The record is a 79-nucleotide sequence from Gongylonema pulchrum, which matches "SmY spliceosomal RNA" in Rfam. The family's consensus secondary structure is taken from published work. Rfam classes the family as a spliceosomal small nuclear RNA. Taxonomically the source falls in Gongylonema (Eukaryota, Eumetazoa, Spirurina, Spiruromorpha).
[Rfam]
RNA sequence: UGUAUGGAGAUAAUAGGGCCAGGGCCUCCCACGAGACCCGAAGAAAAAUUUUUGGAAGUCCUCAAUGGACUGAAGGACU
Numbered sequence: 001u002g003u004a005u006g007g008a009g010a011u012a013a014u015a016g017g018g019c020c021a022g023g024g025c026c027u028c029c030c031a032c033g034a035g036a037c038c039c040g041a042a043g044a045a046a047a048a049u050u051u052u053u054g055g056a057a058g059u060c061c062u063c064a065a066u067g068g069a070c071u072g073a074a075g076g077a078c079u
Base pairs, nucleotide, nucleotide: 022039023038024037026035027034028033058078059077060076061075062074063072064071